[Rfam]
RNA: MIR5565 microRNA precursor family
RNA sequence: GUAGUCGGAUUCGUAUCAAUCCAUGUGUUGAGGUGAAUUAGAGUAGAACUUGAACUAAAUUUUACCACAAUCCAUCCCAACACACGUAGAUUGAGAUAAAUUCGACA
Numbered sequence: 001g002u003a004g005u006c007g008g009a010u011u012c013g014u015a016u017c018a019a020u021c022c023a024u025g026u027g028u029u030g031a032g033g034u035g036a037a038u039u040a041g042a043g044u045a046g047a048a049c050u051u052g053a054a055c056u057a058a059a060u061u062u063u064a065c066c067a068c069a070a071u072c073c074a075u076c077c078c079a080a081c082a083c084a085c086g087u088a089g090a091u092u093g094a095g096a097u098a099a100a101u102u103c104g105a106c107a
Stems, first nucleotide, its partner, number of pairs: 004106008013097002016094006022086001024084007033075003037071003043065003